A member of the RNA family "Bacterial small signal recognition particle RNA" from Pelobacter propionicus, 99 nucleotides long.
RNA sequence: AGCCGGGCCUCGCGCAACGGCAAGCCGUGAACCCCGCCAGGUCCGGAAGGAAGCAACGGCAGCGGCCCCCGCCGUGUGCCGCGGGCAAGCCCGGCUAUC
Number, nucleotide and partner (000 for none) at each position: 001a000002g000003c000004c093005g092006g091007g090008c089009c085010u084011c083012g082013c081014g080015c076016a000017a075018c074019g073020g072021c071022a000023a000024g066025c065026c064027g063028u062029g000030a000031a000032c000033c000034c059035c058036g057037c000038c000039a000040g000041g000042u051043c050044c049045g000046g000047a000048a000049g044050g043051a042052a000053g000054c000055a000056a000057c036058g035059g034060c000061a000062g028063c027064g026065g025066c024067c000068c000069c000070c000071g021072c020073c019074g018075u017076g015077u000078g000079c000080c014081g013082c012083g011084g010085g009086c000087a000088a000089g008090c007091c006092c005093g004094g000095c000096u000097a000098u000099c000

Description
The signal recognition particle (SRP) is a universally conserved ribonucleoprotein involved in the co-translational targeting of proteins to membranes. NCBI's taxonomy places the organism under Bacteria, Pseudomonadati, Desulfuromonadales, Pelobacter, Pelobacter propionicus.